Shown here is a 188-nucleotide RNA sequence from Nocardioides faecalis, a member of the family "c-di-AMP riboswitch aptamer (ydaO/yuaA leader)". The source organism's lineage runs through Bacteria, Bacillati, Actinomycetota, Nocardioidaceae and Nocardioides.
[Rfam]
RNA sequence: CCGGACACUGCGCUGAGUCCGAGGCCGCUCGCGGUCGCGGAGCCGGGGAACCACUCAAUCUGGGGUGAAUCCCGCACGAGGCGUGACCUCGCCAGCCCUACCGGGUUGAGGGGGGAACGAGGAGUGCGGGUAGGGCAUGUCGUGCCCGAAUCCGUCAGCUCACCCGGUAGGCGUACGACACCGAAGGG
Numbered sequence: 001c002c003g004g005a006c007a008c009u010g011c012g013c014u015g016a017g018u019c020c021g022a023g024g025c026c027g028c029u030c031g032c033g034g035u036c037g038c039g040g041a042g043c044c045g046g047g048g049a050a051c052c053a054c055u056c057a058a059u060c061u062g063g064g065g066u067g068a069a070u071c072c073c074g075c076a077c078g079a080g081g082c083g084u085g086a087c088c089u090c091g092c093c094a095g096c097c098c099u100a101c102c103g104g105g106u107u108g109a110g111g112g113g114g115g116a117a118c119g120a121g122g123a124g125u126g127c128g129g130g131u132a133g134g135g136c137a138u139g140u141c142g143u144g145c146c147c148g149a150a151u152c153c154g155u156c157a158g159c160u161c162a163c164c165c166g167g168u169a170g171g172c173g174u175a176c177g178a179c180a181c182c183g184a185a186g187g188g
Stems, first nucleotide, its partner, number of pairs: 011173004018041003042168006052062002063153003071130007133147004